[Rfam]
RNA: Mammalian CPEB3 ribozyme
Organism: Microcaecilia unicolor
RNA sequence: AGCAUCAAUCCAAAGGUUACAGCAGAAGCAUUCAUGCCGUGGCCUCUGUCAGGUUUCAAUAAAAUCUGUAAAUUCUACC
Numbered sequence: 001a002g003c004a005u006c007a008a009u010c011c012a013a014a015g016g017u018u019a020c021a022g023c024a025g026a027a028g029c030a031u032u033c034a035u036g037c038c039g040u041g042g043c044c045u046c047u048g049u050c051a052g053g054u055u056u057c058a059a060u061a062a063a064a065u066c067u068g069u070a071a072a073u074u075c076u077a078c079c
Stems, first nucleotide, its partner, number of pairs: 014045005022078001024076004028040002050068007